[Rfam]
Nucleotides: 088
Base pairs, nucleotide, nucleotide: 003086004085005084006083007082009080010079011078012077013076015074016073017072018071020070021069022068023067024066026064027063028062029061031060033058034057035056036055037054038053
Number, partner (000 for none) and nucleotide at each position: 001000c002000g003086c004085c005084u006083g007082u008000c009080c010079u011078a012077c013076g014000c015074a016073g017072c018071c019000c020070g021069g022068a023067u024066u025000c026064u027063g028062u029061g030000g031060g032000a033058g034057c035056u036055g037054c038053g039000c040000c041000g042000u043000u044000c045000u046000u047000u048000c049000u050000a051000u052000c053038c054037g055036u056035a057034g058033c059000a060031c061029c062028a063027c064026a065000u066024g067023a068022u069021u070020c071018g072017g073016c074015u075000u076013c077012g078011u079010g080009g081000u082007g083006c084005a085004g086003g087000g088000c

This 88-nucleotide sequence from Drosophila ananassae belongs to the Rfam family "mir-995 microRNA precursor family". Its family is annotated with RISC complex and miRNA-mediated post-transcriptional gene silencing in the Gene Ontology. On this family, see Stark et al., Genome Res 2007: "Systematic discovery and characterization of fly microRNAs using 12 Drosophila genomes".